The record is a 97-nucleotide RNA from Macrococcoides caseolyticum, which matches "RNA Staph. aureus E (RoxS)" in Rfam. The family's RNA type in Rfam is small RNA. It is one of the family's seed sequences. It was shown to be regulated by the presence of nitric oxide (NO). In Bacillus subtilis it controls expression of genes with functions related to oxidative stress and oxidation-reduction reactions and it was renamed RoxS (for related to oxidative stress).
RNA sequence: AUGAAAUUGAUCACAUACCAAACAUACCCCUUUGUUUGAGUGAAAGAUUUCUCCCAUCCCCUUUGUUUAAUACCGUGUAUACAGACACGGUAUUUUU
Numbered sequence: 001a002u003g004a005a006a007u008u009g010a011u012c013a014c015a016u017a018c019c020a021a022a023c024a025u026a027c028c029c030c031u032u033u034g035u036u037u038g039a040g041u042g043a044a045a046g047a048u049u050u051c052u053c054c055c056a057u058c059c060c061c062u063u064u065g066u067u068u069a070a071u072a073c074c075g076u077g078u079a080u081a082c083a084g085a086c087a088c089g090g091u092a093u094u095u096u097u
Stems, first nucleotide, its partner, number of pairs: 003051006011043004019038006069094009